A member of the RNA family "MIR845_2 microRNA precursor family" from Vitis rotundifolia, 131 nucleotides long. Its family is annotated with miRNA-mediated post-transcriptional gene silencing and RISC complex in the Gene Ontology. A reference for the family is Jaillon et al. (2007), "The grapevine genome sequence suggests ancestral hexaploidization in major angiosperm phyla", Nature. The family has 2 seed sequences and 180 matches in Rfam 15.1.
RNA sequence: AGAAUGCAUUUUAAUUAUCCUUGGGACCACGGGAUAAACACAAACCUUGCAAAACCAAGUUAGCACACCCUAGAAUGGUUCUAGCACGAUUACUAACCUAUGGAUCUGAUACCAAUUGAAGGAAAAAACCU
Numbered sequence: 001a002g003a004a005u006g007c008a009u010u011u012u013a014a015u016u017a018u019c020c021u022u023g024g025g026a027c028c029a030c031g032g033g034a035u036a037a038a039c040a041c042a043a044a045c046c047u048u049g050c051a052a053a054a055c056c057a058a059g060u061u062a063g064c065a066c067a068c069c070c071u072a073g074a075a076u077g078g079u080u081c082u083a084g085c086a087c088g089a090u091u092a093c094u095a096a097c098c099u100a101u102g103g104a105u106c107u108g109a110u111a112c113c114a115a116u117u118g119a120a121g122g123a124a125a126a127a128a129c130c131u
Base pairs, nucleotide, nucleotide: 009121010120011119012118013117014116015115016114022108023107024106025105027103028102029101031099032098033097048086049085053080054079056077057076060073061072062071063070